The record is a 286-nucleotide RNA from Eutypa lata, which matches "A. fumigatus sRNA Afu_309" in Rfam. Pairs were carried over by alignment from the consensus structure, which was predicted with WAR. The source organism's lineage runs through Eukaryota, Sordariomycetes, Xylariomycetidae, Xylariales and Eutypa lata. On this family, see Jochl et al., Nucleic Acids Res 2008: "Small ncRNA transcriptome analysis from Aspergillus fumigatus suggests a novel mechanism for regulation of protein synthesis". By type it is a small RNA.
[Rfam]
RNA sequence: AUCACAAAACAAAACAUGGAUCUGUGUCCGAUAGUCCUCUGUUCGCUUCGGUGAAUUCAGAGUUGAUUGUCGCGGCAGCUGACUCCCUUCAUGGAAGCAUUAAUAUUCUAAAUGAUGUAAAUCCGAGUCACAGGUCCUAGAGUAAUCGGGGCAUCUGGGAAGCUGAGCUCGCCGUAAAAAGCUGAGCUUGGUGGAACGGGUGGACCUGCUGGUGGUUAUAUUCCUAACCGUUUUGCCAAGACCGUUGGUCUAUGAGGCUGGGGAAAACCAUAACGACACCACAUUU
Number, nucleotide and partner (000 for none) at each position: 001a000002u000003c000004a000005c000006a000007a000008a000009a000010c000011a000012a000013a000014a000015c000016a000017u000018g137019g136020a135021u134022c133023u132024g131025u130026g076027u075028c074029c072030g071031a070032u000033a068034g067035u066036c065037c062038u061039c060040u059041g058042u000043u055044c053045g052046c051047u000048u000049c000050g000051g046052u045053g044054a000055a043056u000057u000058c041059a040060g039061a038062g037063u000064u000065g036066a035067u034068u033069g000070u031071c030072g029073c000074g028075g027076c026077a000078g000079c000080u000081g129082a128083c127084u126085c125086c000087c000088u000089u000090c000091a000092u120093g000094g118095a000096a116097g000098c114099a000100u000101u000102a000103a000104u000105a000106u000107u000108c000109u000110a000111a000112a000113u000114g098115a000116u096117g000118u094119a000120a092121a000122u000123c000124c000125g085126a084127g083128u082129c081130a025131c024132a023133g022134g021135u020136c019137c018138u000139a000140g000141a000142g000143u000144a000145a000146u000147c000148g207149g206150g205151g000152c000153a000154u203155c000156u198157g197158g000159g000160a000161a000162g192163c000164u000165g189166a188167g187168c186169u185170c184171g182172c181173c000174g000175u000176a000177a000178a000179a000180a000181g172182c171183u000184g170185a169186g168187c167188u166189u165190g000191g000192u162193g000194g000195a000196a000197c157198g156199g000200g000201u000202g000203g154204a000205c150206c149207u148208g000209c000210u000211g000212g279213u278214g277215g274216u273217u272218a271219u270220a000221u000222u000223c000224c000225u000226a000227a000228c263229c262230g000231u261232u260233u000234u000235g258236c257237c256238a000239a000240g250241a249242c248243c247244g000245u000246u000247g243248g242249u241250c240251u000252a000253u000254g000255a000256g237257g236258c235259u000260g232261g231262g229263g228264a000265a000266a000267a000268c000269c000270a219271u218272a217273a216274c215275g000276a000277c214278a213279c212280c000281a000282c000283a000284u000285u000286u000